Shown here is a 253-nucleotide part of an RNA from Methanimicrococcus blatticola, a member of the family "Archaeal large subunit ribosomal RNA". The source organism's lineage runs through Archaea, Methanobacteriati, Methanobacteriota, Methanomicrobia and Methanimicrococcus. The literature on the family includes a 2001 paper in Science by Yusupov et al., "Crystal structure of the ribosome at 5.5 A resolution". It scores 2896 bits against the family's covariance model. Pairs were carried over by alignment from the consensus structure, which is taken from published work.
[Rfam]
RNA sequence: UGAUGUCUGAGGGUAAGUUGCUUUUAGUACGAGAGGAACAAAGCAACGGUGCCACUGGUCUACCUGUUGUCUGACAAGGCAUCGCAGGGCAGCUACGCACCAAGGAAUAAGAGCUGAAUGCAUCUAAGCUCGAAAUCUCACCUAAAUAAGAGACAUCGUUAAGGACACUCGUAAAAGACGAGGUUGAUCGAAACGGGAUGUACGCACCAAGGCAACGAGGUGUUUAGUCCGCGUUCACGAAUAGUCCGUACCA
Numbered sequence: 001u002g003a004u005g006u007c008u009g010a011g012g013g014u015a016a017g018u019u020g021c022u023u024u025u026a027g028u029a030c031g032a033g034a035g036g037a038a039c040a041a042a043g044c045a046a047c048g049g050u051g052c053c054a055c056u057g058g059u060c061u062a063c064c065u066g067u068u069g070u071c072u073g074a075c076a077a078g079g080c081a082u083c084g085c086a087g088g089g090c091a092g093c094u095a096c097g098c099a100c101c102a103a104g105g106a107a108u109a110a111g112a113g114c115u116g117a118a119u120g121c122a123u124c125u126a127a128g129c130u131c132g133a134a135a136u137c138u139c140a141c142c143u144a145a146a147u148a149a150g151a152g153a154c155a156u157c158g159u160u161a162a163g164g165a166c167a168c169u170c171g172u173a174a175a176a177g178a179c180g181a182g183g184u185u186g187a188u189c190g191a192a193a194c195g196g197g198a199u200g201u202a203c204g205c206a207c208c209a210a211g212g213c214a215a216c217g218a219g220g221u222g223u224u225u226a227g228u229c230c231g232c233g234u235u236c237a238c239g240a241a242u243a244g245u246c247c248g249u250a251c252c253a
Stems, first nucleotide, its partner, number of pairs: 001158008011143004017047008048101005056095003063088005068081005104138003111131005163247004168182004188240003192235004196230003204223005211216001